[Rfam]
RNA sequence: UGAAUCUAUGAUGAUAUUUUGGCUCCCUCUUCUGAACUUAAGUGAGGAGAACUGCCAUCGUUACCCAAAAAUGUCUGAGGUCCA
Number, nucleotide and partner (000 for none) at each position: 001u084002g083003a000004a081005u080006c079007u000008a000009u000010g000011a000012u000013g000014a000015u000016a000017u000018u000019u000020u000021g000022g000023c000024u000025c000026c000027c000028u000029c000030u000031u000032c000033u000034g000035a000036a000037c000038u000039u000040a000041a000042g000043u000044g000045a000046g000047g000048a000049g000050a000051a000052c000053u000054g000055c000056c000057a000058u000059c000060g000061u000062u000063a000064c000065c000066c000067a000068a000069a000070a000071a000072u000073g000074u000075c000076u000077g000078a000079g006080g005081u004082c000083c002084a001
Rfam assigns this 84-nucleotide sequence from Conger conger to the family "Small nucleolar RNA SNORD100". The match comes from Rfam's covariance-model search (68 bits). On this family, see Galardi et al., Mol Cell Biol 2002: "Purified box C/D snoRNPs are able to reproduce site-specific 2'-O-methylation of target RNA in vitro".